The family of this 89-nucleotide RNA from Haemonchus placei is "mir-5886 microRNA precursor family". The family's consensus secondary structure was predicted with RNAalifold. Its family is annotated with RISC complex and miRNA-mediated post-transcriptional gene silencing in the Gene Ontology. The match comes from Rfam's covariance-model search (85 bits).
[Rfam]
RNA sequence: UCUGCACUUUCUUCAUAGAGGGUCAUUGAUGUGUUCUUGUUCAAUGUCAAGAACACUCUUUGACCCUCAUUUGAAGAACUACGUGCAGU
Numbered sequence: 001u002c003u004g005c006a007c008u009u010u011c012u013u014c015a016u017a018g019a020g021g022g023u024c025a026u027u028g029a030u031g032u033g034u035u036c037u038u039g040u041u042c043a044a045u046g047u048c049a050a051g052a053a054c055a056c057u058c059u060u061u062g063a064c065c066c067u068c069a070u071u072u073g074a075a076g077a078a079c080u081a082c083g084u085g086c087a088g089u
Stems, first nucleotide, its partner, number of pairs: 002088006009081001010077006017070001020066006028058002031056009
Dot-bracket structure: .((((((.(((((((.(..((((((..((.(((((((((........)))))))))))..))))))...).))))))...).)))))).